[Rfam]
RNA: freshwater-2 RNA
RNA sequence: UAACACAAUUAAGUGUUUUAUGCGGACAAAACCGCGUAGGCCUAGAACGCCAACUUUUUGAAAGGAGAAAACAAAUG
Numbered sequence: 001u002a003a004c005a006c007a008a009u010u011a012a013g014u015g016u017u018u019u020a021u022g023c024g025g026a027c028a029a030a031a032c033c034g035c036g037u038a039g040g041c042c043u044a045g046a047a048c049g050c051c052a053a054c055u056u057u058u059u060g061a062a063a064g065g066a067g068a069a070a071a072c073a074a075a076u077g
Stems, first nucleotide, its partner, number of pairs: 002017005019038007039051003